A member of the RNA family "Small nucleolar RNA R11/Z151" from Nelumbo nucifera, 85 nucleotides long. The family's RNA type in Rfam is C/D-box small nucleolar RNA. A reference for the family is Barneche et al. (2001), "Identification of 66 box C/D snoRNAs in Arabidopsis thaliana: extensive gene duplications generated multiple isoforms predicting new ribosomal RNA 2'-O-methylation sites", J Mol Biol. Rfam 15.1 lists 802 matches to the family in 218 species. Taxonomically the source falls in Nelumbo (Eukaryota, Viridiplantae, Streptophytina, Mesangiospermae).
Nucleotides: 085
Base pairs, nucleotide, nucleotide: 001085002084003083004082005081
Number, partner (000 for none) and nucleotide at each position: 001085g002084g003083g004082c005081u006000u007000a008000u009000g010000a011000u012000g013000a014000a015000a016000u017000c018000u019000c020000a021000u022000u023000a024000u025000c026000u027000u028000a029000g030000c031000g032000g033000a034000u035000u036000u037000c038000a039000g040000u041000g042000a043000g044000a045000u046000a047000a048000a049000u050000u051000u052000g053000u054000c055000a056000a057000u058000g059000a060000u061000c062000u063000g064000a065000u066000u067000g068000u069000u070000a071000c072000a073000c074000a075000c076000g077000c078000u079000g080000a081005a082004g083003c084002c085001u
Overview
The family's consensus secondary structure was predicted with PFOLD.